[Rfam]
RNA: Actinobacteria sRNA Ms_IGR-5
Organism: Nocardioides marmotae
RNA sequence: ACACGGGAGAGGAGGUGGUCCGAAGAAUGAGUUCUUUCAGGACGCGUGAGGUGGCUGCCCGCUAGCAGCCCCAGCAGGACGACGGGGCGCUGCCCCGCAGGCUGCUGGCGAAUCCACAGCAGCUACCCGACCCGCAGGUGAGCCGGCCCCGUCCGCCGGCAGGGGUCCUCCACGGAGGACCACACCUGCGGGUCGCUGCAU
Number, nucleotide and partner (000 for none) at each position: 001a000002c000003a000004c000005g000006g000007g000008a000009g000010a000011g000012g000013a000014g059015g058016u057017g056018g055019u054020c000021c000022g000023a000024a000025g000026a000027a000028u000029g000030a000031g000032u000033u000034c000035u000036u000037u000038c000039a000040g000041g000042a000043c000044g000045c000046g000047u000048g000049a000050g000051g000052u000053g000054g019055c018056u017057g016058c015059c014060c110061g109062c108063u107064a106065g105066c104067a000068g102069c101070c100071c000072c097073a000074g095075c000076a000077g000078g000079a000080c000081g000082a000083c000084g000085g000086g000087g000088c000089g000090c000091u000092g000093c000094c000095c074096c000097g072098c000099a000100g070101g069102c068103u000104g066105c065106u064107g063108g062109c061110g060111a000112a000113u000114c000115c000116a000117c000118a000119g000120c000121a000122g000123c000124u000125a000126c000127c000128c195129g194130a193131c192132c191133c190134g189135c188136a187137g186138g185139u184140g183141a000142g160143c159144c158145g157146g156147c155148c000149c000150c000151g000152u000153c000154c000155g147156c146157c145158g144159g143160c142161a000162g000163g000164g000165g000166u000167c000168c000169u000170c000171c000172a000173c000174g000175g000176a000177g000178g000179a000180c000181c000182a000183c140184a139185c138186c137187u136188g135189c134190g133191g132192g131193u130194c129195g128196c000197u000198g000199c000200a000201u000